[Rfam]
RNA sequence: AAAACCAGAAUGCCGAGUUUCCGGGCGGACCGGAAAGCGGGGGAACCAGUUUUUACGGGUGAAUUGAUCUUGGAACACAGGGAUCAUAGGGGUCCUUCAACCGAACCCUCCAGCUAACCUCGCAGGCACGGAAGGAGCUUUC
Numbered sequence: 001a002a003a004a005c006c007a008g009a010a011u012g013c014c015g016a017g018u019u020u021c022c023g024g025g026c027g028g029a030c031c032g033g034a035a036a037g038c039g040g041g042g043g044a045a046c047c048a049g050u051u052u053u054u055a056c057g058g059g060u061g062a063a064u065u066g067a068u069c070u071u072g073g074a075a076c077a078c079a080g081g082g083a084u085c086a087u088a089g090g091g092g093u094c095c096u097u098c099a100a101c102c103g104a105a106c107c108c109u110c111c112a113g114c115u116a117a118c119c120u121c122g123c124a125g126g127c128a129c130g131g132a133a134g135g136a137g138c139u140u141u142c
Stems, first nucleotide, its partner, number of pairs: 011128004018036007037123006057108003065086007089102002